[Rfam]
RNA sequence: CGUUAGGAGGUUACCUCUGUCGUUACCACUUCAUGUGGAUACGGGAAUGUAGCUGUUAA
Number, nucleotide and partner (000 for none) at each position: 001c000002g000003u000004u000005a000006g000007g000008a000009g054010g053011u052012u051013a050014c049015c000016u000017c000018u000019g000020u044021c043022g042023u041024u000025a000026c000027c037028a036029c035030u000031u000032c000033a000034u000035g029036u028037g027038g000039a000040u000041a023042c022043g021044g020045g000046a000047a000048u000049g014050u013051a012052g011053c010054u009055g000056u000057u000058a000059a000

A member of the RNA family "Transposase-1 RNA", 59 nucleotides long. The family's RNA type in Rfam is small RNA.